[Rfam]
RNA: skipping-rope RNA
RNA sequence: AUUCUUUGAGGUGGUAAAUUUCGUGUCAACCACACGCCGCUGGUAUGGACAGGGGAAACCCGAGAGAUGCAGGGGAACGGCACGCCUGCCAAAGAAU
Numbered sequence: 001a002u003u004c005u006u007u008g009a010g011g012u013g014g015u016a017a018a019u020u021u022c023g024u025g026u027c028a029a030c031c032a033c034a035c036g037c038c039g040c041u042g043g044u045a046u047g048g049a050c051a052g053g054g055g056a057a058a059c060c061c062g063a064g065a066g067a068u069g070c071a072g073g074g075g076a077a078c079g080g081c082a083c084g085c086c087u088g089c090c091a092a093a094g095a096a097u
Base pairs, nucleotide, nucleotide: 001097002096003095004094005093006092007091008090011033012032013031014030015029023083024082025081026080027079035064037055038054040052041051042050069089070088071087072086073085